The family of this 263-nucleotide RNA sequence from Olea europaea is "RNase MRP". Taxonomically the source falls in Olea europaea (Eukaryota, Viridiplantae, Mesangiospermae, Gunneridae).

[Rfam]
RNA sequence: UCGCCACGAAACGAAGUGAACGGGGUGUGAACCUGCCUCUCGCAGGUUCGAGCCCCAGGAAAGUCCCCGGGCCAUGAAUUGCAGAGAUGCAAACCCAGGAACGGGUGGCCUCUGUGUCAAUGGGCAAUAUUGCCACUGUGCAAUGGGCUGAGACGUGUGUGGAGCCCUAAUUGCCCAAGACCGGAGUUCUUUGGCCGAUUAUGUCACAGUUAUUCACUUGGUCCUAAUGCGACUAACUGAACGGGGCUUACGAUUUCGUGGUG
Numbered sequence: 001u002c003g004c005c006a007c008g009a010a011a012c013g014a015a016g017u018g019a020a021c022g023g024g025g026u027g028u029g030a031a032c033c034u035g036c037c038u039c040u041c042g043c044a045g046g047u048u049c050g051a052g053c054c055c056c057a058g059g060a061a062a063g064u065c066c067c068c069g070g071g072c073c074a075u076g077a078a079u080u081g082c083a084g085a086g087a088u089g090c091a092a093a094c095c096c097a098g099g100a101a102c103g104g105g106u107g108g109c110c111u112c113u114g115u116g117u118c119a120a121u122g123g124g125c126a127a128u129a130u131u132g133c134c135a136c137u138g139u140g141c142a143a144u145g146g147g148c149u150g151a152g153a154c155g156u157g158u159g160u161g162g163a164g165c166c167c168u169a170a171u172u173g174c175c176c177a178a179g180a181c182c183g184g185a186g187u188u189c190u191u192u193g194g195c196c197g198a199u200u201a202u203g204u205c206a207c208a209g210u211u212a213u214u215c216a217c218u219u220g221g222u223c224c225u226a227a228u229g230c231g232a233c234u235a236a237c238u239g240a241a242c243g244g245g246g247c248u249u250a251c252g253a254u255u256u257c258g259u260g261g262u263g
Stems, first nucleotide, its partner, number of pairs: 002263010014219006023055004029049007061249003065246004080091004111124005127191001136179002140175001141173004145167004155160001221233003225229001

About this RNA:
Gene Ontology terms of the family: ribonuclease MRP complex, rRNA processing and ribonuclease MRP activity. It is annotated as a ribozyme.